RNA sequence: GAAAGUAGCAGAAAAGAACCGUGAGAAUCGGUUCCGCCGAAAGGGCUAAGGGUUCCUUGGCAAUGUUCGUCAGCCGAGGGUUAGUCGGUCCUAAGACUGCCCCUAACAGGAGGUAGUCGAAAGGGAAGCUGGUUAAUAUUCCAGCACCUCUGGUGUUCUGCCGGUGUCACUUGUUUCGGGAUAUUGGGGGUGCGCUUGCCUACGCAUUUGCCUGUAUAAGCCGGUGGAGAGUCGUAAUGACGAGAAGCCGGCGAAAGCAGGUGAGGCCCCGUAAGGGGCUCCCUGAAAUUCCUGGAGCCUGUGAAAGGUGGCAUCGGGUCAAGCCAGAGACCGUACCAAGAACCGACACAGGUGCCCCUGGAUGAGAAGUCCAAGGCGUUU
Numbered sequence: 001g002a003a004a005g006u007a008g009c010a011g012a013a014a015a016g017a018a019c020c021g022u023g024a025g026a027a028u029c030g031g032u033u034c035c036g037c038c039g040a041a042a043g044g045g046c047u048a049a050g051g052g053u054u055c056c057u058u059g060g061c062a063a064u065g066u067u068c069g070u071c072a073g074c075c076g077a078g079g080g081u082u083a084g085u086c087g088g089u090c091c092u093a094a095g096a097c098u099g100c101c102c103c104u105a106a107c108a109g110g111a112g113g114u115a116g117u118c119g120a121a122a123g124g125g126a127a128g129c130u131g132g133u134u135a136a137u138a139u140u141c142c143a144g145c146a147c148c149u150c151u152g153g154u155g156u157u158c159u160g161c162c163g164g165u166g167u168c169a170c171u172u173g174u175u176u177c178g179g180g181a182u183a184u185u186g187g188g189g190g191u192g193c194g195c196u197u198g199c200c201u202a203c204g205c206a207u208u209u210g211c212c213u214g215u216a217u218a219a220g221c222c223g224g225u226g227g228a229g230a231g232u233c234g235u236a237a238u239g240a241c242g243a244g245a246a247g248c249c250g251g252c253g254a255a256a257g258c259a260g261g262u263g264a265g266g267c268c269c270c271g272u273a274a275g276g277g278g279c280u281c282c283c284u285g286a287a288a289u290u291c292c293u294g295g296a297g298c299c300u301g302u303g304a305a306a307g308g309u310g311g312c313a314u315c316g317g318g319u320c321a322a323g324c325c326a327g328a329g330a331c332c333g334u335a336c337c338a339a340g341a342a343c344c345g346a347c348a349c350a351g352g353u354g355c356c357c358c359u360g361g362a363u364g365a366g367a368a369g370u371c372c373a374a375g376g377c378g379u380u381u
Base pairs, nucleotide, nucleotide: 016034017033018032019031020030021029035378036377037376038375043357044356045355046354050337051336055079056078057077058076059075060074064072065071086333087332088331090124091123095118096117097116098115099114100113102110103109128145129144130143131142132141148329149328150327151326152325153324154323168310169309170308173298174297175296176295177294178293179292180291181290184286185285186284187283188282189208190207191206192205193204194203212260213259214258215257221251222250223249224248225247231241232240233239343352344351359373360372361371362370
Dot-bracket structure: ...............((((((.......))))))((((....((((...((...((((((...((.....)).))))))......(((.((...((((((.((.....))..))))))....))...(((((........)))))..(((((((.............(((..(((((((((..(((((((((((........))))))...((((.....(((((.....(((.....))).....))))).....)))).....................)))))...))))))))).........)))............))))))).)))..)).....((......)).)))).((((.......)))).))))...

Rfam assigns this 381-nucleotide part of an RNA from Thermogymnomonas acidicola to the family "Archaeal large subunit ribosomal RNA". A search with the family's covariance model found it, with a score of 2826 bits. The family's consensus secondary structure is taken from published work.